[Rfam]
RNA sequence: AACGCCUGUCGGCAGAUCUCUCCCAUCCCCUGGAGCAGAUCUCGGAGCGGAAACUCCUCCCCAAGUUUCCGUUCCCUGGCCCCGCCGACCUCCCCCUGGUCUGCGGGGCUUUUUA
Numbered sequence: 001a002a003c004g005c006c007u008g009u010c011g012g013c014a015g016a017u018c019u020c021u022c023c024c025a026u027c028c029c030c031u032g033g034a035g036c037a038g039a040u041c042u043c044g045g046a047g048c049g050g051a052a053a054c055u056c057c058u059c060c061c062c063a064a065g066u067u068u069c070c071g072u073u074c075c076c077u078g079g080c081c082c083c084g085c086c087g088a089c090c091u092c093c094c095c096c097u098g099g100u101c102u103g104c105g106g107g108g109c110u111u112u113u114u115a
Stems, first nucleotide, its partner, number of pairs: 004013003014042006020035004044075012078110008087101004

A member of the RNA family "Xanthomonadaceae sRNA sX13" from Xanthomonas campestris, 115 nucleotides long. A reference for the family is Schmidtke et al. (2011), "Genome-wide transcriptome analysis of the plant pathogen Xanthomonas identifies sRNAs with putative virulence functions", Nucleic Acids Res. Pairs were carried over by alignment from the consensus structure, which was predicted with CMfinder. Rfam's curators put it in the seed alignment. Rfam classes the family as a small RNA. The organism belongs to Xanthomonas campestris pv. campestris, within Bacteria.